[Rfam]
RNA sequence: UAAAAGGUUAUUGCAUGGAAGAGGAAUCGGAGGUGUUCCUCGUGACCCCAGGUAGUAACAAUUCAAGUUAUGGCAACAUAUGAAGCACCUGCGUGCUCUUCCUGCGGAAUCCACAGCAAGAGACUUCAGAAGCGUAGUUUUUUGGUACCUGGGCAGCUGGUGAUCAUUGGUCCUGGUGCCCCG
Numbered sequence: 001u002a003a004a005a006g007g008u009u010a011u012u013g014c015a016u017g018g019a020a021g022a023g024g025a026a027u028c029g030g031a032g033g034u035g036u037u038c039c040u041c042g043u044g045a046c047c048c049c050a051g052g053u054a055g056u057a058a059c060a061a062u063u064c065a066a067g068u069u070a071u072g073g074c075a076a077c078a079u080a081u082g083a084a085g086c087a088c089c090u091g092c093g094u095g096c097u098c099u100u101c102c103u104g105c106g107g108a109a110u111c112c113a114c115a116g117c118a119a120g121a122g123a124c125u126u127c128a129g130a131a132g133c134g135u136a137g138u139u140u141u142u143u144g145g146u147a148c149c150u151g152g153g154c155a156g157c158u159g160g161u162g163a164u165c166a167u168u169g170g171u172c173c174u175g176g177u178g179c180c181c182c183g
Stems, first nucleotide, its partner, number of pairs: 008132002011129001012075003077104002082099001084097005106127003110123002151181004156177005162172004
U11 spliceosomal RNA: a 183-nucleotide RNA from Vicugna pacos. The organism belongs to Vicugna, within Eukaryota. Pairs were carried over by alignment from the consensus structure, which is taken from published work. A search with the family's covariance model found it, with a score of 46 bits.